[Rfam]
RNA sequence: CUGCUUUUUUCUUUGGUUAUCUAGCUGUAUGAGUGUUAGAAGACGUCAUAAAGCUAGGUUACCAAAGUUAAGAACUG
Numbered sequence: 001c002u003g004c005u006u007u008u009u010u011c012u013u014u015g016g017u018u019a020u021c022u023a024g025c026u027g028u029a030u031g032a033g034u035g036u037u038a039g040a041a042g043a044c045g046u047c048a049u050a051a052a053g054c055u056a057g058g059u060u061a062c063c064a065a066a067g068u069u070a071a072g073a074a075c076u077g
Stems, first nucleotide, its partner, number of pairs: 001077001003075001005073001007071002011067007019059008028050005

Description
Shown here is a 77-nucleotide RNA sequence from Daphnia pulex, a member of the family "mir-9/mir-79 microRNA precursor family". Rfam 15.1 lists 5,647 matches to the family in 934 species. The source organism's lineage runs through Eukaryota, Arthropoda, Anomopoda, Daphniidae and Daphnia. Rfam's curators put it in the seed alignment.